Source information
The family of this 88-nucleotide sequence from Aquilegia coerulea is "Small nucleolar RNA snoR26". The match comes from Rfam's covariance-model search (85 bits). The family's consensus secondary structure was predicted with WAR. Rfam classes the family as a C/D-box small nucleolar RNA. For this family Rfam cites "Multiple snoRNA gene clusters from Arabidopsis" (Brown et al., RNA, 2001).
[Rfam]
RNA sequence: GCAGCAUCAAUGAUGUUAAUUUCCAAUCGUUAUCCUUGCACUUUGAUUGCCAGUGAAGAAAAAUAUGGGGAAGUUGUCUGAGAUGCUG
Numbered sequence: 001g002c003a004g005c006a007u008c009a010a011u012g013a014u015g016u017u018a019a020u021u022u023c024c025a026a027u028c029g030u031u032a033u034c035c036u037u038g039c040a041c042u043u044u045g046a047u048u049g050c051c052a053g054u055g056a057a058g059a060a061a062a063a064u065a066u067g068g069g070g071a072a073g074u075u076g077u078c079u080g081a082g083a084u085g086c087u088g
Stems, first nucleotide, its partner, number of pairs: 002088007